[Rfam]
RNA sequence: CCUCCUUUUCUUGGCGCGGGUCGGGCGUGCAGUCCCGAUCCGCGUAAUGUACGGAGGUAGAGAGAACGGGCUCUGGCCCCCUCGGCGUCAUGUCUUCGGUACCGGCGGCCAGCUGUCCGCCGGUUCUAUCCUCAAGCGCCGGGACACAG
Numbered sequence: 001c002c003u004c005c006u007u008u009u010c011u012u013g014g015c016g017c018g019g020g021u022c023g024g025g026c027g028u029g030c031a032g033u034c035c036c037g038a039u040c041c042g043c044g045u046a047a048u049g050u051a052c053g054g055a056g057g058u059a060g061a062g063a064g065a066a067c068g069g070g071c072u073c074u075g076g077c078c079c080c081c082u083c084g085g086c087g088u089c090a091u092g093u094c095u096u097c098g099g100u101a102c103c104g105g106c107g108g109c110c111a112g113c114u115g116u117c118c119g120c121c122g123g124u125u126c127u128a129u130c131c132u133c134a135a136g137c138g139c140c141g142g143g144a145c146a147c148a149g
Base pairs, nucleotide, nucleotide: 001057002056003055004054005053015044016043017042018041019040020039022037023036024035025034083141084140085139086138087137088136102123103122104121105120106119107118108117
Notes
The family of this 149-nucleotide sequence from Bos taurus is "Small nucleolar RNA SNORA57". A reference for the family is Vitali et al. (2003), "Identification of 13 novel human modification guide RNAs", Nucleic Acids Res. Rfam describes the family as follows. U99 belongs to the H/ACA class of snoRNAs which are thought to guide the sites of modification of uridines to pseudouridines, the target for this family is unknown. Gene Ontology terms of the family: RNA processing and nucleolus. The sequence is in the family's curated seed alignment. The family has 26 seed sequences and 1,736 matches in Rfam 15.1. By type it is an H/ACA-box small nucleolar RNA.